[Rfam]
This 139-nucleotide RNA from Protea cynaroides belongs to the Rfam family "mir-393 microRNA precursor family". The literature on the family includes a 2012 paper in J Plant Physiol by Kruszka et al., "Role of microRNAs and other sRNAs of plants in their changing environments". A search with the family's covariance model found it, with a score of 76 bits. Lineage of the source: Eukaryota > Streptophytina > Euphyllophyta > Proteaceae > Protea.
RNA sequence: GCUGGUGAAUUCCAAAGGGAUCGCAUUGAUCUGAUACUCUCGCUGAAUGAAUAAAGAAUGCAAAAACGAGGAUUUUAGUUUUGGAUCAAUCCUUUUUCUGAGUUUCAUUGGAUCAUGCGAUCCCUUUGGAAUUCUCCAU
Numbered sequence: 001g002c003u004g005g006u007g008a009a010u011u012c013c014a015a016a017g018g019g020a021u022c023g024c025a026u027u028g029a030u031c032u033g034a035u036a037c038u039c040u041c042g043c044u045g046a047a048u049g050a051a052u053a054a055a056g057a058a059u060g061c062a063a064a065a066a067c068g069a070g071g072a073u074u075u076u077a078g079u080u081u082u083g084g085a086u087c088a089a090u091c092c093u094u095u096u097u098c099u100g101a102g103u104u105u106c107a108u109u110g111g112a113u114c115a116u117g118c119g120a121u122c123c124c125u126u127u128g129g130a131a132u133u134c135u136c137c138a139u
Base pairs, nucleotide, nucleotide: 003138004137005136008133009132010131011130012129013128014127015126016125017124018123019122020121021120023118024117025116026115028114029113030112031111032110033109034108035107
Dot-bracket structure: ..(((..((((((((((((((.((((.((((((((.......................................................................)))))))))))).))))))))))))))..))).